Background:
A member of the RNA family "RAGATH-7-assoc RNA", 128 nucleotides long.
RNA sequence: AAAGAGUAUAUUGUACUAUUAUAUCAACCCAAUGAUAUAUGAAAACUCGUGUAUGAUGUAUAUCUCUCUAAUUGAGGCGUUAUCCAAUCUGCCAGGAUAUGAAGGCGCAGAGGUGUACAAAACUCUUU
Numbered sequence: 001a002a003a004g005a006g007u008a009u010a011u012u013g014u015a016c017u018a019u020u021a022u023a024u025c026a027a028c029c030c031a032a033u034g035a036u037a038u039a040u041g042a043a044a045a046c047u048c049g050u051g052u053a054u055g056a057u058g059u060a061u062a063u064c065u066c067u068c069u070a071a072u073u074g075a076g077g078c079g080u081u082a083u084c085c086a087a088u089c090u091g092c093c094a095g096g097a098u099a100u101g102a103a104g105g106c107g108c109a110g111a112g113g114u115g116u117a118c119a120a121a122a123c124u125c126u127u128u
Stems, first nucleotide, its partner, number of pairs: 001128007011120006023036004037052006066076003081099005088094001
It is annotated as a small RNA.